[Rfam]
Nucleotides: 223
Stems, first nucleotide, its partner, number of pairs: 015058005060127004065122002068119002071116001072113002146217013160178006
Number, partner (000 for none) and nucleotide at each position: 001000a002000c003000u004000u005000c006000g007000g008000a009000a010000g011000g012000g013000a014000g015058g016057u017056g018055g019054u020000u021000c022000g023000g024000c025000a026000g027000a028000u029000g030000u031000a032000u033000u034000c035000a036000u037000a038000c039000c040000g041000g042000a043000c044000g045000g046000a047000a048000g049000a050000g051000g052000u053000g054019g055018c056017u057016g058015c059000g060127g061126g062125c063124u064000a065122g066121c067000g068119g069118c070000c071116c072113g073112u074000c075000a076000c077000c078000a079000c080000a081000u082000u083000c084000a085000g086000u087000g088000c089000g090000g091000u092000g093000c094000c095000g096000g097000a098000c099000c100000c101000g102000u103000g104000c105000g106000c107000g108000a109000c110000a111000g112073a113072c114000g115000c116071g117000u118069g119068c120000a121066g122065c123000c124063g125062g126061c127060c128000c129000a130000a131000u132000c133000c134000c135000a136000a137000g138000c139000a140000g141000u142000c143000a144000c145000c146217c147216g148215a149214c150213c151212c152211g153210u154209g155208a156207g157206c158205u159000c160178g161177c162176c163175g164174g165173u166000a167000c168000g169000u170000c171000c172000g173165g174164c175163c176162g177161g178160c179000u180000c181000c182000c183000c184000c185000g186000c187000u188000u189000c190000g191000g192000c193000g194000g195000a196000g197000g198000g199000a200000a201000c202000c203000c204000g205158a206157g207156c208155u209154c210153g211152c212151g213150g214149g215148u216147c217146g218000u219000c220000u221000g222000c223000g
Background
Rfam assigns this 223-nucleotide RNA from Streptomyces sp. Act143 to the family "Actinobacteria sRNA Ms_IGR-5". On this family, see Li et al., RNA 2013: "Identification of small RNAs in Mycobacterium smegmatis using heterologous Hfq". The match comes from Rfam's covariance-model search (77 bits). The organism belongs to Streptomyces, within Bacteria. By type it is a small RNA. The base pairs follow the family's consensus structure.